Annotation: Shown here is a 191-nucleotide sequence from Vitis vinifera, a member of the family "small nucleolar RNA snoR143". The family has 3 seed sequences and 660 matches in Rfam 15.1. Rfam classes the family as an H/ACA-box small nucleolar RNA. Gene Ontology terms of the family: RNA processing and nucleolus.
RNA sequence: UUGCACUUGUUGCGUGGAUUGAGAGAAGCCCUGUUCAUGGAUUCUCAUAAUGAAGCAACGGUGCAUAGAGAGAAAGUCCGAUUACUAUUUCAAAGUAGUAAUUUGGGCAGCGGCCAGACAACCGUAGAGAUGCUUUCCACAGAUGACGGGUCAUUCGUCCCGCUUUUGUCUACUGAUUCCAUCUCACAUUU
Numbered sequence: 001u002u003g004c005a006c007u008u009g010u011u012g013c014g015u016g017g018a019u020u021g022a023g024a025g026a027a028g029c030c031c032u033g034u035u036c037a038u039g040g041a042u043u044c045u046c047a048u049a050a051u052g053a054a055g056c057a058a059c060g061g062u063g064c065a066u067a068g069a070g071a072g073a074a075a076g077u078c079c080g081a082u083u084a085c086u087a088u089u090u091c092a093a094a095g096u097a098g099u100a101a102u103u104u105g106g107g108c109a110g111c112g113g114c115c116a117g118a119c120a121a122c123c124g125u126a127g128a129g130a131u132g133c134u135u136u137c138c139a140c141a142g143a144u145g146a147c148g149g150g151u152c153a154u155u156c157g158u159c160c161c162g163c164u165u166u167u168g169u170c171u172a173c174u175g176a177u178u179c180c181a182u183c184u185c186a187c188a189u190u191u
Stems, first nucleotide, its partner, number of pairs: 002065005008057003013052002019050003023046005029040002127185006146167001148165004